[Rfam]
Shown here is a 115-nucleotide RNA sequence from Leminorella richardii, a member of the family "TPP riboswitch aptamer (THI element)". Gene Ontology term of the family: thiamine pyrophosphate binding.
Nucleotides: 115
Stems, first nucleotide, its partner, number of pairs: 006103005011065004016059001017042004049058002071096003077090004
Number, partner (000 for none) and nucleotide at each position: 001000u002000a003000a004000a005000u006103c007102u008101u009100g010099u011065c012064g013063g014062a015000g016059u017042g018041c019040c020039c021000a022000g023000c024000g025000c026000c027000c028000u029000u030000a031000u032000a033000c034000g035000g036000c037000g038000c039020g040019g041018g042017c043000u044000g045000a046000g047000a048000c049058c050057g051000u052000u053000a054000a055000u056000u057050c058049g059016g060000g061000a062014u063013c064012c065011g066000c067000g068000g069000a070000a071096c072095c073094u074000g075000a076000u077090c078089g079088g080087g081000c082000u083000a084000a085000u086000a087080c088079c089078c090077g091000c092000g093000a094073a095072g096071g097000g098000a099010a100009c101008a102007a103006g104000a105000g106000u107000a108000a109000u110000u111000c112000a113000a114000u115000u